Glycine riboswitch aptamer: a 95-nucleotide RNA from Desulfotomaculum nigrificans. Lineage of the source: Bacteria > Bacillati > Bacillota > Desulfotomaculaceae > Desulfotomaculum nigrificans.
RNA sequence: GGACAGGACUCUGGAGAGACCCUACCUAGGGCGCCGAAGGGGCAAGAUAGCACUAAGCUGUUAAAUCUCUCAGGCAAAAGGACAGAGAAAACGGU
Numbered sequence: 001g002g003a004c005a006g007g008a009c010u011c012u013g014g015a016g017a018g019a020c021c022c023u024a025c026c027u028a029g030g031g032c033g034c035c036g037a038a039g040g041g042g043c044a045a046g047a048u049a050g051c052a053c054u055a056a057g058c059u060g061u062u063a064a065a066u067c068u069c070u071c072a073g074g075c076a077a078a079a080g081g082a083c084a085g086a087g088a089a090a091a092c093g094g095u
Base pairs, nucleotide, nucleotide: 009087010086011085012084013083020031021030022029023028033075034074035073036071037070040069041068042067046062047061048060049059050058051057